Rfam assigns this 274-nucleotide sequence from Octodon degus to the family "Mason-Pfizer monkey virus packaging signal". It scores 103 bits against the family's covariance model. The family's RNA type in Rfam is cis-regulatory element. The base pairs follow the family's consensus structure, which was predicted with PFOLD. The source organism's lineage runs through Eukaryota, Sarcopterygii, Tetrapoda, Hystricomorpha and Octodon. The family has 9 seed sequences and 2,921 matches in Rfam 15.1. This family represents a group of sequences that are related to the Mason-Pfizer monkey virus (MPMV) packaging signal. The packaging signal is located in the 5' UTR and is required for specific RNA encapsidation.
RNA sequence: UGGCGCCCAACGUGGUGCUCUGGCACGGGGGAUCUAGUGAGGAACACCGGUCGUCAGCCUGGCCAGCACCCUCUCCUCAGGAGGUUGACUCGUCGCGGGAGCCUGCCGCUUCGCGUCCCCUCGGUAACUGACCGGUGAUUCAUUAUGGGACAGGCAAUUAGUGAACAUGAAAUGUUUCUUCAAGGCUUAGAAGAAGCUCUCAGGGCACGAGGAGUAAAGGUUAAAGGUAAAGAUUUGUCUAAAUAUUUUGCAUAUAUAAAGGAGGUCUGCCCCU
Number, nucleotide and partner (000 for none) at each position: 001u000002g000003g000004c000005g000006c031007c030008c029009a000010a000011c000012g026013u025014g024015g000016u000017g000018c000019u000020c000021u000022g000023g000024c014025a013026c012027g000028g000029g008030g007031g006032a000033u000034c000035u000036a051037g047038u046039g000040a000041g000042g000043a000044a000045c000046a038047c037048c000049g000050g000051u036052c000053g000054u000055c000056a000057g000058c000059c000060u000061g000062g000063c000064c000065a000066g000067c000068a000069c000070c000071c000072u000073c000074u000075c000076c000077u000078c000079a000080g000081g000082a000083g120084g119085u000086u000087g000088a000089c115090u000091c113092g000093u000094c000095g109096c108097g107098g106099g000100a000101g000102c000103c000104u000105g000106c098107c097108g096109c095110u000111u000112c000113g091114c000115g089116u000117c000118c000119c084120c083121u000122c000123g000124g000125u000126a000127a000128c000129u000130g000131a000132c000133c153134g000135g151136u150137g000138a000139u149140u148141c147142a146143u000144u000145a000146u142147g141148g140149g139150a136151c135152a000153g133154g000155c000156a000157a000158u000159u000160a000161g197162u196163g000164a000165a000166c000167a000168u000169g000170a000171a000172a000173u000174g000175u000176u000177u000178c000179u000180u000181c000182a000183a000184g000185g000186c000187u000188u000189a000190g000191a000192a000193g000194a000195a000196g162197c161198u000199c000200u000201c000202a000203g000204g000205g000206c000207a000208c250209g249210a248211g247212g246213a000214g244215u243216a000217a000218a236219g235220g234221u233222u232223a000224a000225a000226g000227g000228u000229a000230a000231a000232g222233a221234u220235u219236u218237g000238u000239c000240u000241a000242a000243a215244u214245a000246u212247u211248u210249u209250g208251c000252a000253u000254a000255u000256a000257u000258a000259a274260a000261g272262g271263a000264g000265g000266u000267c000268u000269g000270c000271c262272c261273c000274u259